[Rfam]
RNA sequence: AUCAAAUGAAGACCUCCUAACUUUAUUUGAUGAAAUCCUAAAACUUUUUCAUAAUAAUCUCCCUAUAAGGGUCACCAAAGAGGUGGCCUUUUU
Numbered sequence: 001a002u003c004a005a006a007u008g009a010a011g012a013c014c015u016c017c018u019a020a021c022u023u024u025a026u027u028u029g030a031u032g033a034a035a036u037c038c039u040a041a042a043a044c045u046u047u048u049u050c051a052u053a054a055u056a057a058u059c060u061c062c063c064u065a066u067a068a069g070g071g072u073c074a075c076c077a078a079a080g081a082g083g084u085g086g087c088c089u090u091u092u093u
Stems, first nucleotide, its partner, number of pairs: 001031011067090002070088007
A member of the RNA family "Cia-dependent small RNA csRNA1" from Streptococcus anginosus, 93 nucleotides long. Taxonomically the source falls in Streptococcus anginosus (Bacteria, Bacillota, Bacilli, Lactobacillales). On this family, see Halfmann et al., Mol Microbiol 2007: "Identification of the genes directly controlled by the response regulator CiaR in Streptococcus pneumoniae: five out of 15 promoters drive expression of small non-coding RNAs". Rfam's curators put it in the seed alignment.